[Rfam]
RNA sequence: AAUAUAAUACUGGGUCACUGUGGCAGUCUCCCUUCCUAGCCAUGGAAGAGCAUUUUCUUGUUUAUUGGCAAAGCUGUUACCAUUUAAUUGGUAUCAGAUUCUGACUUGCACAAGUGACAUUC
Numbered sequence: 001a002a003u004a005u006a007a008u009a010c011u012g013g014g015u016c017a018c019u020g021u022g023g024c025a026g027u028c029u030c031c032c033u034u035c036c037u038a039g040c041c042a043u044g045g046a047a048g049a050g051c052a053u054u055u056u057c058u059u060g061u062u063u064a065u066u067g068g069c070a071a072a073g074c075u076g077u078u079a080c081c082a083u084u085u086a087a088u089u090g091g092u093a094u095c096a097g098a099u100u101c102u103g104a105c106u107u108g109c110a111c112a113a114g115u116g117a118c119a120u121u122c
Base pairs, nucleotide, nucleotide: 002043003042012032013031014030018026019025020024059119060118061117062116065113066112067111068109069108070107071106074097075096076095079092080091081090082089